[Rfam]
RNA sequence: AGCAGGGAGCAUCCACAGCAAAAAAGCGUGAACCGGCGGCGUUAGGAAGAGCGCGGCCGGCAAGC
Numbered sequence: 001a002g003c004a005g006g007g008a009g010c011a012u013c014c015a016c017a018g019c020a021a022a023a024a025a026g027c028g029u030g031a032a033c034c035g036g037c038g039g040c041g042u043u044a045g046g047a048a049g050a051g052c053g054c055g056g057c058c059g060g061c062a063a064g065c
Stems, first nucleotide, its partner, number of pairs: 033060005039054002042050002
RNA: DnaX ribosomal frameshifting element
Organism: Serratia symbiotica